[Rfam]
c-di-GMP-I riboswitch aptamer: an 88-nucleotide RNA from Paraliobacillus quinghaiensis. The family's consensus secondary structure is taken from published work.
RNA sequence: CUAUUGAAAAGGCAAACUUACUAAAAAGUGAGGACGCAAAGAUACAGGCCUAAGGGUAAAUUUUACCUAUGGUGGCUGUUCUACCAAG
Numbered sequence: 001c002u003a004u005u006g007a008a009a010a011g012g013c014a015a016a017c018u019u020a021c022u023a024a025a026a027a028g029u030g031a032g033g034a035c036g037c038a039a040a041g042a043u044a045c046a047g048g049c050c051u052a053a054g055g056g057u058a059a060a061u062u063u064u065a066c067c068u069a070u071g072g073u074g075g076c077u078g079u080u081c082u083a084c085c086a087a088g
Stems, first nucleotide, its partner, number of pairs: 012037002017032006040082003045078003048073003055067004